[Rfam]
RNA sequence: AAAUUUGCCCUCUAGGGUUCCGGUUUUUAUAAAAACGUCUGGACCGAGAGAGGGCGUACAGCAUCUGCUGUAUACACGGAGGGAUAAAAGCCCGGGAGAC
Numbered sequence: 001a002a003a004u005u006u007g008c009c010c011u012c013u014a015g016g017g018u019u020c021c022g023g024u025u026u027u028u029a030u031a032a033a034a035a036c037g038u039c040u041g042g043a044c045c046g047a048g049a050g051a052g053g054g055c056g057u058a059c060a061g062c063a064u065c066u067g068c069u070g071u072a073u074a075c076a077c078g079g080a081g082g083g084a085u086a087a088a089a090g091c092c093c094g095g096g097a098g099a100c
Stems, first nucleotide, its partner, number of pairs: 007055006015045002020042002022039001023036005056073007075095001077098001081093003